Rfam assigns this 125-nucleotide sequence from Brassica carinata to the family "MIR9563 microRNA precursor family". The organism belongs to Brassica, within Eukaryota. The family's consensus secondary structure was predicted with RNAalifold. The match comes from Rfam's covariance-model search (104 bits). The family has 2 seed sequences and 5,832 matches in Rfam 15.1.
RNA sequence: GUAAUAUAAAAAUCCGUCUCUUAACUUUUAACUAAAAAAACUAAGAACCAGCUCUUAAAACUCUUAUUUAAGAACCAGUUCUUAACUUUUUUAAUUAAAAGUUAAGAGACGAAUUCUUAUAUUCC
Numbered sequence: 001g002u003a004a005u006a007u008a009a010a011a012a013u014c015c016g017u018c019u020c021u022u023a024a025c026u027u028u029u030a031a032c033u034a035a036a037a038a039a040a041c042u043a044a045g046a047a048c049c050a051g052c053u054c055u056u057a058a059a060a061c062u063c064u065u066a067u068u069u070a071a072g073a074a075c076c077a078g079u080u081c082u083u084a085a086c087u088u089u090u091u092u093a094a095u096u097a098a099a100a101g102u103u104a105a106g107a108g109a110c111g112a113a114u115u116c117u118u119a120u121a122u123u124c125c
Base pairs, nucleotide, nucleotide: 001125003123004122005121006120007119008118009117011115012114013113015111016110017109018108019107020106021105022104023103024102025101026100027099028098029097030096031095033093034092035091036090037089038088039087042084043083044082045081046080047079